A member of the RNA family "c-di-GMP-II-GAG riboswitch aptamer", 113 nucleotides long.

Nucleotides: 113
Stems, first nucleotide, its partner, number of pairs: 004110005010104002014087002022082008065100002067096005
Number, partner (000 for none) and nucleotide at each position: 001000g002000g003000c004110u005109g006108g007107a008106c009000g010104u011103u012000a013000a014087g015086c016000g017000a018000a019000g020000a021000u022082c023081c024080g025079g026078g027077c028076g029075g030000u031000c032000c033000u034000c035000a036000c037000c038000g039000g040000c041000a042000c043000a044000g045000c046000g047000c048000g049000u050000g051000c052000a053000c054000g055000g056000a057000g058000g059000a060000a061000a062000u063000a064000c065100g066099g067096u068095c069094g070093c071092c072000a073000g074000a075029c076028c077027g078026u079025c080024c081023g082022g083000g084000g085000a086015g087014c088000c089000a090000g091000u092071g093070g094069c095068g096067a097000g098000a099066c100065c101000g102000g103011a104010a105000a106008g107007u108006c109005c110004a111000u112000g113000a